[Rfam]
RNA sequence: GAUGACGAGAUCCGGCGUCAAGCUCUGGCUGGCCGGACGGCAACCCUCUCCCGUAGCGGGGUGCCCCAGAUGACCAUCCGGCCGCGGUUAACGUAGCUCCCGGCAAGUGCGGUUU
Number, nucleotide and partner (000 for none) at each position: 001g078002a077003u076004g075005a000006c000007g000008a000009g038010a000011u037012c036013c035014g034015g033016c032017g000018u000019c000020a000021a030022g029023c000024u000025c000026u000027g000028g000029c022030u021031g000032g016033c015034c014035g013036g012037a011038c009039g065040g064041c063042a000043a000044c061045c060046c059047u000048c056049u055050c000051c000052c000053g000054u000055a049056g048057c000058g000059g046060g045061g044062u000063g041064c040065c039066c000067c000068a000069g000070a000071u000072g000073a000074c000075c004076a003077u002078c001079c000080g000081g104082c103083c102084g101085c000086g099087g098088u000089u096090a000091a000092c000093g000094u000095a000096g089097c000098u087099c086100c000101c084102g083103g082104c081105a000106a000107g000108u000109g000110c000111g000112g000113u000114u000115u000